Shown here is a 67-nucleotide sequence from Pseudarcicella hirudinis, a member of the family "Fluoride riboswitch aptamer (crcB RNA motif)". The family's consensus secondary structure is taken from published work. The organism belongs to Pseudarcicella, within Bacteria.
RNA sequence: CACUGUAAAGGAAAUGGUGUCUUCCUCAUCAACCGUCUAUUCAGAGACUGAUGGCGCCUGCAAAUAA
Numbered sequence: 001c002a003c004u005g006u007a008a009a010g011g012a013a014a015u016g017g018u019g020u021c022u023u024c025c026u027c028a029u030c031a032a033c034c035g036u037c038u039a040u041u042c043a044g045a046g047a048c049u050g051a052u053g054g055c056g057c058c059u060g061c062a063a064a065u066a067a
Base pairs, nucleotide, nucleotide: 010025011024012023013022016058017057018056019055020054021053035048036047037046038045